[Rfam]
RNA: Nuclear RNase P
RNA sequence: GUAUUGGUUUGAAACCAAUGUAAUAUUCAACAAAUGGCAAUCAUUAAAAAAAGGAAUCUCUCACAAAUUUUUAAAAUCAUAAAGAGAGAAUAAUAUGGGAAGGUCUGAGUACGCGAAAAUCUCUAGGGGGGAAAUUACAAACAAUGUAAUGGUCAGGUAACAGAAAUAGUCUAAGCUCAUACUAAAAAACGACAAAGAAACCAAUUCAUCAACUUGCCGAAAGGUCGGAAAAUGUAAAGGUCGAGUCAGUAUGACAAAGGUUGGGAAAACUUGGCUGCGUAUAAAAUCAAUGAAGUUAGAUACAUCGGAUAGUUGAAAUUUAAAAAAAAUCAACUACAACUCAAUUCAGAUUAAUCUCUAACUGAUAC
Numbered sequence: 001g002u003a004u005u006g007g008u009u010u011g012a013a014a015c016c017a018a019u020g021u022a023a024u025a026u027u028c029a030a031c032a033a034a035u036g037g038c039a040a041u042c043a044u045u046a047a048a049a050a051a052a053g054g055a056a057u058c059u060c061u062c063a064c065a066a067a068u069u070u071u072u073a074a075a076a077u078c079a080u081a082a083a084g085a086g087a088g089a090a091u092a093a094u095a096u097g098g099g100a101a102g103g104u105c106u107g108a109g110u111a112c113g114c115g116a117a118a119a120u121c122u123c124u125a126g127g128g129g130g131g132a133a134a135u136u137a138c139a140a141a142c143a144a145u146g147u148a149a150u151g152g153u154c155a156g157g158u159a160a161c162a163g164a165a166a167u168a169g170u171c172u173a174a175g176c177u178c179a180u181a182c183u184a185a186a187a188a189a190c191g192a193c194a195a196a197g198a199a200a201c202c203a204a205u206u207c208a209u210c211a212a213c214u215u216g217c218c219g220a221a222a223g224g225u226c227g228g229a230a231a232a233u234g235u236a237a238a239g240g241u242c243g244a245g246u247c248a249g250u251a252u253g254a255c256a257a258a259g260g261u262u263g264g265g266a267a268a269a270c271u272u273g274g275c276u277g278c279g280u281a282u283a284a285a286a287u288c289a290a291u292g293a294a295g296u297u298a299g300a301u302a303c304a305u306c307g308g309a310u311a312g313u314u315g316a317a318a319u320u321u322a323a324a325a326a327a328a329a330u331c332a333a334c335u336a337c338a339a340c341u342c343a344a345u346u347c348a349g350a351u352u353a354a355u356c357u358c359u360a361a362c363u364g365a366u367a368c
Base pairs, nucleotide, nucleotide: 001368002367003366004365009361010360011359015307017305023096024095025094026093027092054070055069056068057067059065105349106348107347108346109345112279113278114277115276120132121131122130123129134150135149136148137147138146139145152275153274154273155272156271157270158269170260171259172258310336311335312334313333314332315331